[Rfam]
RNA sequence: UAUAUACAUCAAGAACCCUUUAUGGGUACCAACCGAGCACAAAAGCCACGGUGGUUCAGAAUGUGGACAGACUGUCAAAACAAAUGAUUUCAA
Numbered sequence: 001u002a003u004a005u006a007c008a009u010c011a012a013g014a015a016c017c018c019u020u021u022a023u024g025g026g027u028a029c030c031a032a033c034c035g036a037g038c039a040c041a042a043a044a045g046c047c048a049c050g051g052u053g054g055u056u057c058a059g060a061a062u063g064u065g066g067a068c069a070g071a072c073u074g075u076c077a078a079a080a081c082a083a084a085u086g087a088u089u090u091c092a093a
Stems, first nucleotide, its partner, number of pairs: 006064004015027004028055003033051003037046002041088001044085001066076004
Rfam assigns this 93-nucleotide RNA sequence from Maribacter luteus to the family "SAM-I/IV (S-adenosyl methionine) riboswitch aptamer". Pairs were carried over by alignment from the consensus structure, which is taken from published work. Clan: SAM clan.